[Rfam]
RNA sequence: CGCACGGUCUUGGACUCCAAGAUGCUUUGGGGCCGUGUGAGAAAAUAGUGGCUGAUCAAGGGGAUCUCUUCACAGCCACCAGUAAAGCGGAUAGGUGCGACCUAGGCCCGAAGGGCAAGGCGAGAAGGCAACGGCAGGGCAGGCGUUAAAAGCCGAACACGGCGCUUGUAACUGUCUCAAAACCCACCAUCCCUGCACGCUGAAGAGGGCGCGGGGCGCUGCAAACGCAUAACCCGGAAAGUGCAGAACGCGG
Numbered sequence: 001c002g003c004a005c006g007g008u009c010u011u012g013g014a015c016u017c018c019a020a021g022a023u024g025c026u027u028u029g030g031g032g033c034c035g036u037g038u039g040a041g042a043a044a045a046u047a048g049u050g051g052c053u054g055a056u057c058a059a060g061g062g063g064a065u066c067u068c069u070u071c072a073c074a075g076c077c078a079c080c081a082g083u084a085a086a087g088c089g090g091a092u093a094g095g096u097g098c099g100a101c102c103u104a105g106g107c108c109c110g111a112a113g114g115g116c117a118a119g120g121c122g123a124g125a126a127g128g129c130a131a132c133g134g135c136a137g138g139g140c141a142g143g144c145g146u147u148a149a150a151a152g153c154c155g156a157a158c159a160c161g162g163c164g165c166u167u168g169u170a171a172c173u174g175u176c177u178c179a180a181a182a183c184c185c186a187c188c189a190u191c192c193c194u195g196c197a198c199g200c201u202g203a204a205g206a207g208g209g210c211g212c213g214g215g216g217c218g219c220u221g222c223a224a225a226c227g228c229a230u231a232a233c234c235c236g237g238a239a240a241g242u243g244c245a246g247a248a249c250g251c252g253g
Base pairs, nucleotide, nucleotide: 001039002038003037004036005035006034007033008032009031010030048079049078050077051076052075053074067206068205069204070203071202089192090191091190092189094188095187096186097185133176134175135174139169140168141167142166143165144164145163146162147161193246194245195244196243197242198241212236213235214234215233
RNA: PAGEV RNA
Organism: Pseudomonas syringae group genomosp. 3